[Rfam]
RNA: Glycine riboswitch aptamer
RNA sequence: GCUGUCGGAAAGGGAGAGAAUCCGGGAAACCGGAUCGCCGAAGGAGCAACCGCCCCGGAAACUCUCAGGCAAAAGGACCUUCCGGCCACC
Numbered sequence: 001g002c003u004g005u006c007g008g009a010a011a012g013g014g015a016g017a018g019a020a021u022c023c024g025g026g027a028a029a030c031c032g033g034a035u036c037g038c039c040g041a042a043g044g045a046g047c048a049a050c051c052g053c054c055c056c057g058g059a060a061a062c063u064c065u066c067a068g069g070c071a072a073a074a075g076g077a078c079c080u081u082c083c084g085g086c087c088a089c090c
Stems, first nucleotide, its partner, number of pairs: 006085001008083001010081004020035004037070003040066002044064003050058002
Dot-bracket structure: .....(.(.((((......((((........)))).(((((..(((...((.....))...))))).))).......)))).).).....